Background: A member of the RNA family "Burkholderia RNA 7 (anti-hemB)" from Aquabacterium sp. NJ1, 94 nucleotides long. Gene Ontology terms of the family: protein binding and bacterial biofilm matrix.
RNA sequence: GCCCUGCUUUUCCUCCCUGAGCAGGUGCCUUACCGUGAUGACAGCGAUAAGGCUUCACUCGCUGGAUGGUCCUGCUGUCCAGCGAGUUUUCUUU
Numbered sequence: 001g002c003c004c005u006g007c008u009u010u011u012c013c014u015c016c017c018u019g020a021g022c023a024g025g026u027g028c029c030u031u032a033c034c035g036u037g038a039u040g041a042c043a044g045c046g047a048u049a050a051g052g053c054u055u056c057a058c059u060c061g062c063u064g065g066a067u068g069g070u071c072c073u074g075c076u077g078u079c080c081a082g083c084g085a086g087u088u089u090u091c092u093u094u
Base pairs, nucleotide, nucleotide: 003025004024005023006022007021008020027053028052029051030050031049032048058086059085060084061083062082063081064080065079066078067077068076069075070074

Background
The family's RNA type in Rfam is small RNA. This RNA motif was identified by computational search in b-proteobacteria Burkholderia. Co-purified with Hfq, expression confirmed by Northern blot. Lineage of the source: Bacteria > Pseudomonadati > Betaproteobacteria > Sphaerotilaceae > Aquabacterium.